Notes:
A member of the RNA family "PhotoRC-II RNA", 98 nucleotides long.

RNA sequence: AAUCUUUUGUAAACUCCCCGUAAACCGAGACCUCUAGGGAGUAUAAAUGCACGUCUCUAAUACCCACACUGGAGGGUGGUGUGGGAAUAUCAUAACCG
Dot-bracket structure: .............(((((.(......[[[[[...).)))))...........]]]]].....(((((((.........))))))).............